small nucleolar RNA snoR135: a 147-nucleotide sequence from Corymbia citriodora.
RNA sequence: UUAGCAGAGAUUGUGUAUCGGCCUGGCGCGACAAAGGUGCGUCAAUCGCCGAAAGGUGAUCUCUGCGAAAUCAAGAAAGGGGAAGGUGGGCAGUUGUAGUUCAAAUUCUUCCCAUUGAGCUCUUCAACAAUCAUCUUCCCCACAUUC
Numbered sequence: 001u002u003a004g005c006a007g008a009g010a011u012u013g014u015g016u017a018u019c020g021g022c023c024u025g026g027c028g029c030g031a032c033a034a035a036g037g038u039g040c041g042u043c044a045a046u047c048g049c050c051g052a053a054a055g056g057u058g059a060u061c062u063c064u065g066c067g068a069a070a071u072c073a074a075g076a077a078a079g080g081g082g083a084a085g086g087u088g089g090g091c092a093g094u095u096g097u098a099g100u101u102c103a104a105a106u107u108c109u110u111c112c113c114a115u116u117g118a119g120c121u122c123u124u125c126a127a128c129a130a131u132c133a134u135c136u137u138c139c140c141c142a143c144a145u146u147c
Stems, first nucleotide, its partner, number of pairs: 004066007015040004079141011093128004
Dot-bracket structure: ...(((((((....((((..................))))...................)))))))............(((((((((((...((((............................))))..)))))))))))......
A reference for the family is Chen and Wu (2009), "Mining small RNA sequencing data: a new approach to identify small nucleolar RNAs in Arabidopsis", Nucleic Acids Res. NCBI's taxonomy places the organism under Eukaryota, Viridiplantae, Euphyllophyta, Myrtales, Corymbia citriodora. The match comes from Rfam's covariance-model search (92 bits).